[Rfam]
Shown here is a 587-nucleotide part of an RNA from Cohaesibacter gelatinilyticus, a member of the family "Bacterial large subunit ribosomal RNA". NCBI's taxonomy places the organism under Bacteria, Pseudomonadati, Alphaproteobacteria, Cohaesibacteraceae, Cohaesibacter.
RNA sequence: CCUGCGGUCAGACGGAAAGACCCCGUGAACCUUUACUAUAGCUUCGCGCUGACAGUUGUGUUGGCAUGUGUAGGAUAGGUGGUAGGCUUUGAAGUUCGGGCGCCAGCUCGGAUGGAGCCAUCCUUGAAAUACCACCCUUGUUGUCAUGGCUGUCUAACCGCGGUCCGUUAUCCGGAUCCGGGACAGCGCGUGGUGGGUAGUUUGACUGGGGCGGUCGCCUCCCAAAGAGUAACGGAGGCGCGCGAUGGUUGGCUCAGACCGGUCGGAAAUCGGUCGUUGAGUGCAAUGGCAUAAGCCAGCCUGACUGCGAGACUGACAAGUCGAGCAGAGACGAAAGUCGGUCAUAGUGAUCCGGUGGUCCCGUGUGGAAGGGCCAUCGCUCAACGGAUAAAAGGUACUCCGGGGAUAACAGGCUGAUGAUGCCCAAGAGUCCAUAUCGACGGCAUUGUUUGGCACCUCGAUGUCGGCUCAUCGCAUCCUGGGGCUGGAGCAGGUCCCAAGGGUUUGGCUGUUCGCCAAUUAAAGCGGUACGUGAGCUGGGUUCAGAACGUCGUGAGACAGUUCGGUCCCUAUCUGCCGUGGGCGCA
Numbered sequence: 001c002c003u004g005c006g007g008u009c010a011g012a013c014g015g016a017a018a019g020a021c022c023c024c025g026u027g028a029a030c031c032u033u034u035a036c037u038a039u040a041g042c043u044u045c046g047c048g049c050u051g052a053c054a055g056u057u058g059u060g061u062u063g064g065c066a067u068g069u070g071u072a073g074g075a076u077a078g079g080u081g082g083u084a085g086g087c088u089u090u091g092a093a094g095u096u097c098g099g100g101c102g103c104c105a106g107c108u109c110g111g112a113u114g115g116a117g118c119c120a121u122c123c124u125u126g127a128a129a130u131a132c133c134a135c136c137c138u139u140g141u142u143g144u145c146a147u148g149g150c151u152g153u154c155u156a157a158c159c160g161c162g163g164u165c166c167g168u169u170a171u172c173c174g175g176a177u178c179c180g181g182g183a184c185a186g187c188g189c190g191u192g193g194u195g196g197g198u199a200g201u202u203u204g205a206c207u208g209g210g211g212c213g214g215u216c217g218c219c220u221c222c223c224a225a226a227g228a229g230u231a232a233c234g235g236a237g238g239c240g241c242g243c244g245a246u247g248g249u250u251g252g253c254u255c256a257g258a259c260c261g262g263u264c265g266g267a268a269a270u271c272g273g274u275c276g277u278u279g280a281g282u283g284c285a286a287u288g289g290c291a292u293a294a295g296c297c298a299g300c301c302u303g304a305c306u307g308c309g310a311g312a313c314u315g316a317c318a319a320g321u322c323g324a325g326c327a328g329a330g331a332c333g334a335a336a337g338u339c340g341g342u343c344a345u346a347g348u349g350a351u352c353c354g355g356u357g358g359u360c361c362c363g364u365g366u367g368g369a370a371g372g373g374c375c376a377u378c379g380c381u382c383a384a385c386g387g388a389u390a391a392a393a394g395g396u397a398c399u400c401c402g403g404g405g406a407u408a409a410c411a412g413g414c415u416g417a418u419g420a421u422g423c424c425c426a427a428g429a430g431u432c433c434a435u436a437u438c439g440a441c442g443g444c445a446u447u448g449u450u451u452g453g454c455a456c457c458u459c460g461a462u463g464u465c466g467g468c469u470c471a472u473c474g475c476a477u478c479c480u481g482g483g484g485c486u487g488g489a490g491c492a493g494g495u496c497c498c499a500a501g502g503g504u505u506u507g508g509c510u511g512u513u514c515g516c517c518a519a520u521u522a523a524a525g526c527g528g529u530a531c532g533u534g535a536g537c538u539g540g541g542u543u544c545a546g547a548a549c550g551u552c553g554u555g556a557g558a559c560a561g562u563u564c565g566g567u568c569c570c571u572a573u574c575u576g577c578c579g580u581g582g583g584c585g586c587a
Base pairs, nucleotide, nucleotide: 001583002582003581004580005579006578007577008576010575011574012573014570015569022404023403024402025401027400028399029396030395031394032393033392035201036200037199038198042193043192045190046189047188048187051154052153053152054151055150056149057148058147059146060145062143063142064141065140066139068137078136079135080134081133082132085119086118087117094113095112096111097110098109099108100107101106158181159180160179162178163177164176165175166174167173204216205215206214207213217239218238219237220236221235222234240385242342243341248300249299250298251297252296253295254280255279257275258274259273260272261271262270281290282289305328306327307326308325311322312321313320330339331338332337353379354378355377356376357375358374359373361372362371413454414453415452417451418448419447420446421445422444423443424442428438429437465540466538467537468536469535470532471529472528473527474526475525478503479502481498482497483496484495485494486493505519506518507517508516509515546564547563548562549561550559551558552557